[Rfam]
Nucleotides: 349
Stems, first nucleotide, its partner, number of pairs: 040051004055186005065179002067175004079164002083161003089105005106146007187202004193212002196210003315330004321346006
Number, partner (000 for none) and nucleotide at each position: 001000c002000c003000c004000c005000u006000u007000u008000g009000c010000a011000a012000a013000u014000a015000c016000g017000c018000c019000g020000c021000g022000c023000a024000g025000g026000c027000c028000u029000a030000u031000a032000u033000a034000g035000a036000a037000a038000a039000u040051g041050u042049c043048c044000u045000u046000c047000g048043g049042g050041a051040c052000u053000a054000u055186a056185g057184a058183c059182a060000u061000a062000a063000a064000c065179g066178c067175g068174c069173u070172c071000g072000u073000a074000a075000u076000a077000a078000g079164c080163g081000g082000a083161u084160c085159g086000g087000a088000c089105c090104c091103g092102g093101g094000g095000g096000c097000g098000g099000u100000a101093c102092c103091c104090g105089g106146c107145g108144a109143c110142u111141c112140c113000a114000c115000c116000a117000a118000a119000u120000a121000u122000c123000c124000g125000u126000c127000a128000u129000u130000u131000g132000c133000g134000g135000a136000u137000c138000a139000u140112g141111g142110g143109g144108u145107c146106g147000a148000a149000a150000u151000a152000g153000g154000a155000u156000c157000g158000a159085c160084g161083g162000a163080c164079g165000u166000c167000c168000a169000a170000a171000g172070g173069g174068g175067u176000u177000a178066g179065c180000u181000u182059u183058g184057u185056c186055u187202c188201g189200g190199u191000g192000a193212g194211a195000u196210a197209c198208c199190a200189c201188c202187g203000u204000u205000a206000u207000c208198g209197g210196u211194u212193c213000a214000a215000a216000u217000a218000a219000g220000c221000u222000a223000g224000u225000u226000g227000c228000a229000a230000a231000u232000g233000a234000c235000a236000a237000c238000a239000a240000a241000g242000c243000u244000c245000c246000g247000a248000u249000g250000g251000c252000u253000c254000u255000c256000g257000c258000a259000g260000c261000g262000u263000a264000a265000g266000c267000u268000g269000u270000g271000c272000g273000a274000a275000a276000u277000a278000u279000c280000g281000a282000a283000a284000c285000c286000u287000a288000a289000g290000c291000c292000c293000u294000u295000a296000g297000g298000u299000u300000u301000a302000g303000c304000g305000a306000c307000c308000u309000a310000a311000g312000g313000c314000g315330g316329g317328g318327u319000u320000c321346g322345c323344a324343g325342g326341u327318a328317c329316c330315u331000g332000g333000c334000a335000a336000c337000a338000g339000a340000a341326a342325c343324c344323u345322g346321c347000a348000c349000u
Background: This 349-nucleotide RNA sequence from Litorivita pollutaquae belongs to the Rfam family "Alphaproteobacteria transfer-messenger RNA". Clan: tRNA clan. By type it is a non-coding RNA gene. The match comes from Rfam's covariance-model search (312 bits). The organism belongs to Litorivita, within Bacteria.